[Rfam]
RNA sequence: CCGUGCUAGGUGGGGAGGUAGCGGUGCCCUGUACUCGCAAUCCGCUAUAGCGAGACUGAAUCCCUUGCCGAGGUGUUAUUGCUUUAAGGUCUGCCUUAAAGGAGCAGUGCCGACGUCCGGGUCCUGCGCAACAGGAGCUCGUGAACUAUGUCAGGUCCGGAAGGAAGCAGCAUUAAGCGAUCUCUCCUGUGUGCCGCAGGGAAGCCUGGGCUGAGCUGCAAUCUUAAGUAACGCUUAGGGCAAUAGCAUCGAAGCUUGGUGCACGG
Numbered sequence: 001c002c003g004u005g006c007u008a009g010g011u012g013g014g015g016a017g018g019u020a021g022c023g024g025u026g027c028c029c030u031g032u033a034c035u036c037g038c039a040a041u042c043c044g045c046u047a048u049a050g051c052g053a054g055a056c057u058g059a060a061u062c063c064c065u066u067g068c069c070g071a072g073g074u075g076u077u078a079u080u081g082c083u084u085u086a087a088g089g090u091c092u093g094c095c096u097u098a099a100a101g102g103a104g105c106a107g108u109g110c111c112g113a114c115g116u117c118c119g120g121g122u123c124c125u126g127c128g129c130a131a132c133a134g135g136a137g138c139u140c141g142u143g144a145a146c147u148a149u150g151u152c153a154g155g156u157c158c159g160g161a162a163g164g165a166a167g168c169a170g171c172a173u174u175a176a177g178c179g180a181u182c183u184c185u186c187c188u189g190u191g192u193g194c195c196g197c198a199g200g201g202a203a204g205c206c207u208g209g210g211c212u213g214a215g216c217u218g219c220a221a222u223c224u225u226a227a228g229u230a231a232c233g234c235u236u237a238g239g240g241c242a243a244u245a246g247c248a249u250c251g252a253a254g255c256u257u258g259g260u261g262c263a264c265g266g
Stems, first nucleotide, its partner, number of pairs: 001266006009057003012030004017025001019023001034054005063259002067255002072250005079243010092230002096227004101222001104219005115211008123200006129191002132189005137182001139180004148173004156165003